[Rfam]
RNA sequence: GGGUCGGCUUUAGCUCAAGCGGUUACUUCGUCAUGGCAACAAAUCCCAACCAUGGGGUUCGAGACCCGCGGGUGCUUUCUGACCCUUUU
Numbered sequence: 001g002g003g004u005c006g007g008c009u010u011u012a013g014c015u016c017a018a019g020c021g022g023u024u025a026c027u028u029c030g031u032c033a034u035g036g037c038a039a040c041a042a043a044u045c046c047c048a049a050c051c052a053u054g055g056g057g058u059u060c061g062a063g064a065c066c067c068g069c070g071g072g073u074g075c076u077u078u079c080u081g082a083c084c085c086u087u088u089u
Stems, first nucleotide, its partner, number of pairs: 002084006013073004019069004027063004
Shown here is an 89-nucleotide sequence from Rousettus aegyptiacus, a member of the family "Vault RNA". On this family, see Stadler et al., Mol Biol Evol 2009: "Evolution of Vault RNAs". It is annotated as a non-coding RNA gene.